[Rfam]
RNA sequence: CCGUCGCUCAACAGAUCGCUAUUCGAAGCUCACAAACAAAGAGACUAGGUAAAACUGGUCUCUUACCCGUGUACUACGCUUUGGGAGAAAGUCCCCGGACGUCUCUGGUUUUCCUUUUGGAGGGCUAGGGCCUGCGGAAACGCGCCGCCAUAGAAGCACUGCGGCUUACCUUGGUUCCUUGGCUCUUUGGUUUGCGUCAUGCCCCGCCUGCCGCUACAUCUGUAUGCUGCAGAGUCGCUUGUUACAUCUUGAUGUCCUACUGUUCGUCUCGUCGCUUGGCCCAUUACAGGAUGAAGAUACGAGUCCGAGCUGAGUACGGGGUGAGCUGGAGGCUCUUUAUGUGCGGUGAUUUGGACAAUGGAUGGUAGAUGGACGCUGUGGCCAUUCCAGAUUGUUGCGGGAAUCGAGGGAUUGUUGUCGAGGUUGAUAGAUAUGCGAUUGCUUGGUGUUCUUUGGAUACCAGGUUACUCGAUGGGGCUCAUUCUUGAUGCGAGG
Dot-bracket structure: .(.((((((((..((((((...(((((((.........((((((((((......)))))))))).............)))))).)....[[.[[[[............((((((....)))))).............................................................................................................................................(((...(((.((...((.(....(.(......................................................................................(.((...)).)....).).).)).)).)))..)))......................)))))).((((((((.......)))))))).........]]]]]].....)))).)))).)
RNA: RNase MRP